[Rfam]
Source information: Rfam assigns this 147-nucleotide RNA from Paenibacillus larvae to the family "c-di-AMP riboswitch aptamer (ydaO/yuaA leader)". The match comes from Rfam's covariance-model search (83 bits). Rfam's curators write: This family represents a conserved RNA structure found upstream of the ydaO and yuaA genes in Bacillus subtilis and related genes in other bacteria.
RNA sequence: UUUUAAUAAUAGCCGAAUCCUGCUUUUCUACAUCGGAAACAGGUACGGGGGACGAUAUACUUGGGGUGAAUUUGCGACAUUUGUGCAUUAGGGAAUUCCUCUUCCCGAACCCGUCAACUAACCCCGGAGGCUACGUAUAGGAGGUAA
Dot-bracket structure: ..........((((....((((.................))))..(((((..((.......))(((......(((.........)))...((((........))))...))).........)))))..))))...............